The record is a 60-nucleotide sequence from Ziziphus mauritiana, which matches "Plastid-psbA-4 3UTR RNA" in Rfam. The literature on the family includes a 2023 paper in Plant Commun by Richter et al., "Retrograde signaling in plants: A critical review focusing on the GUN pathway and beyond". Rfam's curators put it in the seed alignment. The base pairs follow the family's consensus structure, which was predicted with LocARNA. The organism belongs to Ziziphus, within Eukaryota. Rfam classes the family as a cis-regulatory element. About the family: Plastid psbA-4 is a non-coding RNA (ncRNA) present in plastids. It was identified in inverted repeat sequences in the 3 prime untranslate region (3UTR) of photosystem II quinone-binding protein (psbA).
RNA sequence: AACAUAAAGGAGCAAUAAUCAAUUUCUUGUUAUAGCAAGAAGUUUGGUAUUGCUCCUUUA
Numbered sequence: 001a002a003c004a005u006a007a008a009g010g011a012g013c014a015a016u017a018a019u020c021a022a023u024u025u026c027u028u029g030u031u032a033u034a035g036c037a038a039g040a041a042g043u044u045u046g047g048u049a050u051u052g053c054u055c056c057u058u059u060a
Stems, first nucleotide, its partner, number of pairs: 006059012021044002024041006